RNA sequence: GAAAUCUUUAACAAGGUCCAGAGAGGCCAAGAAGAUGGUAAGCAUGAAUCAAAGAAUACGUAGGCUUAUUAUACCUCUUGUCUGUUUGGACAAGAGGUUUUUUUAU
Number, nucleotide and partner (000 for none) at each position: 001g000002a000003a000004a036005u035006c034007u033008u032009u031010a000011a000012c000013a000014a000015g028016g027017u026018c025019c000020a000021g000022a000023g000024a000025g018026g017027c016028c015029a000030a000031g009032a008033a007034g006035a005036u004037g000038g069039u068040a067041a066042g065043c064044a000045u062046g061047a000048a000049u058050c000051a000052a000053a000054g000055a000056a000057u000058a049059c000060g000061u046062a045063g000064g043065c042066u041067u040068a039069u038070u000071a100072u000073a098074c097075c096076u095077c094078u093079u092080g091081u090082c089083u088084g000085u000086u000087u000088g083089g082090a081091c080092a079093a078094g077095a076096g075097g074098u073099u000100u071101u000102u000103u000104u000105a000106u000
A member of the RNA family "PyrR binding site" from Proteiniclasticum ruminis, 106 nucleotides long. By type it is a cis-regulatory element. The match comes from Rfam's covariance-model search (55 bits). Pairs were carried over by alignment from the consensus structure, which is taken from published work.